[Rfam]
RNA sequence: UGAGCCGGCCGGGCGGCCGCGCCGGACGCCCUCGGGCGUGCGGUGAGGAAAGUCCGGACUCCACAGAGCGCGGUGGUGGCCAACAGCCACCCACGGUGACGUGCGGGACAGUGCCACAGAGAACAGACCGCCAACGGCCUGCGCCCUCGGGUGCAGGUGCGGGCAAGGGUGAAACGGUGAGGUAAGAGCUCACCAGCGGCCUCGGUGACGGGGCCGGCUCGGUAAACCCCACCGGGAGCUAGACCAAGAGGGCGCCUCGGCGCCUGCGCUGACGGGCUGCUCGUCCACGGGUCAGCGGGUAGGUCGCACCGAGCGGCGCAGCGAUGCGCCGCCCAGAUGGAUGGUCGCCCAGCGCCUUCGGGCGUGGACAGAAUCCGGCUUACAGGCCGGCUCAUUCG
Numbered sequence: 001u002g003a004g005c006c007g008g009c010c011g012g013g014c015g016g017c018c019g020c021g022c023c024g025g026a027c028g029c030c031c032u033c034g035g036g037c038g039u040g041c042g043g044u045g046a047g048g049a050a051a052g053u054c055c056g057g058a059c060u061c062c063a064c065a066g067a068g069c070g071c072g073g074u075g076g077u078g079g080c081c082a083a084c085a086g087c088c089a090c091c092c093a094c095g096g097u098g099a100c101g102u103g104c105g106g107g108a109c110a111g112u113g114c115c116a117c118a119g120a121g122a123a124c125a126g127a128c129c130g131c132c133a134a135c136g137g138c139c140u141g142c143g144c145c146c147u148c149g150g151g152u153g154c155a156g157g158u159g160c161g162g163g164c165a166a167g168g169g170u171g172a173a174a175c176g177g178u179g180a181g182g183u184a185a186g187a188g189c190u191c192a193c194c195a196g197c198g199g200c201c202u203c204g205g206u207g208a209c210g211g212g213g214c215c216g217g218c219u220c221g222g223u224a225a226a227c228c229c230c231a232c233c234g235g236g237a238g239c240u241a242g243a244c245c246a247a248g249a250g251g252g253c254g255c256c257u258c259g260g261c262g263c264c265u266g267c268g269c270u271g272a273c274g275g276g277c278u279g280c281u282c283g284u285c286c287a288c289g290g291g292u293c294a295g296c297g298g299g300u301a302g303g304u305c306g307c308a309c310c311g312a313g314c315g316g317c318g319c320a321g322c323g324a325u326g327c328g329c330c331g332c333c334c335a336g337a338u339g340g341a342u343g344g345u346c347g348c349c350c351a352g353c354g355c356c357u358u359c360g361g362g363c364g365u366g367g368a369c370a371g372a373a374u375c376c377g378g379c380u381u382a383c384a385g386g387c388c389g390g391c392u393c394a395u396u397c398g
Stems, first nucleotide, its partner, number of pairs: 001394010011383001012349007020045005026039003050381003054378005059238004066282004071234005076090005091105001092103004106229002111227002113223003128168002130164003135159002138156001176194006196218001197216008242305004252296002257291001274286004313332008
Bacterial RNase P class A: a 398-nucleotide RNA from Aeromicrobium sp. IC_218. About the family: Ribonuclease P (RNase P) is a ubiquitous endoribonuclease, found in archaea, bacteria and eukarya as well as chloroplasts and mitochondria. Its best characterised activity is the generation of mature 5'-ends of tRNAs by cleaving the 5'-leader elements of precursor-tRNAs. Cellular RNase Ps are ribonucleoproteins. RNA from bacterial RNase Ps retains its catalytic activity in the absence of the protein subunit, i.e. it is a ribozyme. The base pairs follow the family's consensus structure, which is taken from published work.